[Rfam]
RNA sequence: GCCGGUCCUCGGUAGUACGCACUUGUGACGUUCGGUCACAAGUGGGUUCGAUCGAAGACCGGC
Numbered sequence: 001g002c003c004g005g006u007c008c009u010c011g012g013u014a015g016u017a018c019g020c021a022c023u024u025g026u027g028a029c030g031u032u033c034g035g036u037c038a039c040a041a042g043u044g045g046g047u048u049c050g051a052u053c054g055a056a057g058a059c060c061g062g063c
Base pairs, nucleotide, nucleotide: 001063002062003061004060005059006058007057009055010054011053012052013051017047018046020044021043022042023041024040025039026038027037028036029035
RNA: Actino-pnp RNA
Organism: Cryptosporangium aurantiacum